Source information
Shown here is a 369-nucleotide RNA sequence from Pilibacter termitis, a member of the family "Bacterial RNase P class B". The organism belongs to Pilibacter, within Bacteria. The base pairs follow the family's consensus structure, which is taken from published work. Ribonuclease P (RNase P) is a ubiquitous endoribonuclease, found in archaea, bacteria and eukarya as well as chloroplasts and mitochondria. Its best characterised activity is the generation of mature 5'-ends of tRNAs by cleaving the 5'-leader elements of precursor-tRNAs. Cellular RNase Ps are ribonucleoproteins. RNA from bacterial RNase Ps retains its catalytic activity in the absence of the protein subunit, i.e. it is a ribozyme. The literature on the family includes a 1999 paper in Nucleic Acids Res by Brown, "The Ribonuclease P Database".

[Rfam]
RNA sequence: GCUAUUGGGUAAUCGCGGUAAGUCUUGAGCUUGCUGAGGAAAGUCCAUGCUCGCACGCUCUGAGAUGAGCGUAGUGUUUGUGCUAGAUGAAAAAAUAAGUCUAGGGGUCUUAGUAUUAAGGCUACGGCAGAAAAAAACGCUAAGUCAUAAGAUAUGCGUAAGUAUUCUUGAAAGUGCCACAGUGACGAAGUGACAGGUGAAAACUUGUCAGUGGAACGAGGUAAACCCCUCAAGCGAGCAACCCAAACAUUUGGUAGGGGCAUCUGUUGGAGCGGAAAUGAACGCAUCCUACGGAGUGUAUUCACAGAUAGAUGAUUACCGAAAUUUUUCGUGCCACGCGGAAAAUGGAACAAAACAUGGCUUAUAGAU
Numbered sequence: 001g002c003u004a005u006u007g008g009g010u011a012a013u014c015g016c017g018g019u020a021a022g023u024c025u026u027g028a029g030c031u032u033g034c035u036g037a038g039g040a041a042a043g044u045c046c047a048u049g050c051u052c053g054c055a056c057g058c059u060c061u062g063a064g065a066u067g068a069g070c071g072u073a074g075u076g077u078u079u080g081u082g083c084u085a086g087a088u089g090a091a092a093a094a095a096u097a098a099g100u101c102u103a104g105g106g107g108u109c110u111u112a113g114u115a116u117u118a119a120g121g122c123u124a125c126g127g128c129a130g131a132a133a134a135a136a137a138c139g140c141u142a143a144g145u146c147a148u149a150a151g152a153u154a155u156g157c158g159u160a161a162g163u164a165u166u167c168u169u170g171a172a173a174g175u176g177c178c179a180c181a182g183u184g185a186c187g188a189a190g191u192g193a194c195a196g197g198u199g200a201a202a203a204c205u206u207g208u209c210a211g212u213g214g215a216a217c218g219a220g221g222u223a224a225a226c227c228c229c230u231c232a233a234g235c236g237a238g239c240a241a242c243c244c245a246a247a248c249a250u251u252u253g254g255u256a257g258g259g260g261c262a263u264c265u266g267u268u269g270g271a272g273c274g275g276a277a278a279u280g281a282a283c284g285c286a287u288c289c290u291a292c293g294g295a296g297u298g299u300a301u302u303c304a305c306a307g308a309u310a311g312a313u314g315a316u317u318a319c320c321g322a323a324a325u326u327u328u329u330c331g332u333g334c335c336a337c338g339c340g341g342a343a344a345a346u347g348g349a350a351c352a353a354a355a356c357a358u359g360g361c362u363u364a365u366a367g368a369u
Base pairs, nucleotide, nucleotide: 004369005368006367007365008320009319010318011317012316013315014314016036017035018034019033020032021031041363042362043361045360046359047358048357049356050238051237052236053235054234055072056071057070058069059068060067078233079232080231082229083104084103085102086101087100088099105125106123107122108121109120110119111118126228127227129168130167131166132165137159138158139157140156144153145152146151174226175225176222177221178220191210192209193208194207195206196205197204198203242259243258244257263295264294265293266292267291269289296305297304298303324346325345326344327343328342329341330340331339332338